Notes
Rfam assigns this 357-nucleotide part of an RNA from Methanospirillum hungatei to the family "Archaeal large subunit ribosomal RNA". The family's consensus secondary structure is taken from published work. Clan: LSU clan.

[Rfam]
RNA sequence: AGUAGUAGAAGCUUAAGAUUGGUGAGAAUCCAAUCCGCCGCAGGGGCUAGGUUUCCUCGACAAUGUUCGUCAGUCGAGGGUUAGUCGGUCCUAAGACGUACCGUAAUUCGAGUACGCCGAAAGGGAAACAGGUUAAUAUUCCUGUACCUGUAUCAAACAAUCCUGACGCUUUCGGAUAGGCAUUGCGGAGUCAUCGCUCCGUCUAAGCCGGAUAUGAAAUUGGAGUACCGUAAUGGUGAGAAUUUUUCAAAACGGUGAUGGGGUAACAAUGCUGAUUCCAGGAGCCCGUGAAAAGGGUGAUACGGUCCGUACCGAGAACUGACACAGGUGCCCCUCGCUGAGAAGGCGAAGGCGUGU
Number, nucleotide and partner (000 for none) at each position: 001a000002g000003u000004a000005g000006u000007a000008g000009a000010a000011g000012c000013u000014u000015a000016a000017g035018a034019u033020u032021g031022g030023u000024g000025a000026g000027a000028a000029u000030c022031c021032a020033a019034u018035c017036c354037g353038c352039c351040g000041c000042a000043g000044g333045g332046g331047c330048u000049a000050g313051g312052u000053u000054u000055c079056c078057u077058c076059g075060a074061c000062a000063a000064u072065g071066u000067u000068c000069g000070u000071c065072a064073g000074u060075c059076g058077a057078g056079g055080g000081u000082u000083a000084g000085u000086c309087g308088g307089u000090c124091c123092u000093a000094a000095g118096a000097c116098g115099u114100a113101c000102c110103g109104u000105a000106a000107u000108u000109c103110g102111a000112g000113u100114a099115c098116g097117c000118c095119g000120a000121a000122a000123g091124g090125g000126a000127a000128a145129c144130a143131g142132g141133u000134u000135a000136a000137u000138a000139u000140u000141c132142c131143u130144g129145u128146a000147c000148c305149u304150g303151u302152a301153u300154c299155a298156a000157a000158c000159a000160a000161u000162c297163c296164u295165g000166a000167c000168g285169c284170u283171u282172u281173c000174g279175g278176a277177u000178a000179g273180g272181c271182a270183u269184u000185g202186c201187g200188g199189a198190g000191u000192c000193a000194u000195c000196g000197c000198u189199c188200c187201g186202u185203c000204u000205a000206a000207g256208c255209c254210g253211g000212a000213u000214a000215u000216g000217a247218a246219a245220u000221u000222g000223g000224a000225g000226u000227a237228c236229c235230g000231u000232a000233a000234u000235g229236g228237u227238g000239a000240g000241a000242a000243u000244u000245u219246u218247u217248c000249a000250a000251a000252a000253c210254g209255g208256u207257g000258a000259u000260g000261g000262g267263g000264u000265a000266a000267c262268a000269a183270u182271g181272c180273u179274g000275a000276u000277u176278c175279c174280a000281g172282g171283a170284g169285c168286c000287c000288g000289u000290g000291a000292a000293a000294a000295g164296g163297g162298u155299g154300a153301u152302a151303c150304g149305g148306u000307c088308c087309g086310u000311a000312c051313c050314g000315a000316g000317a000318a000319c328320u327321g000322a000323c000324a000325c000326a000327g320328g319329u000330g047331c046332c045333c044334c000335u349336c348337g347338c346339u000340g000341a000342g000343a000344a000345g000346g338347c337348g336349a335350a000351g039352g038353c037354g036355u000356g000357u000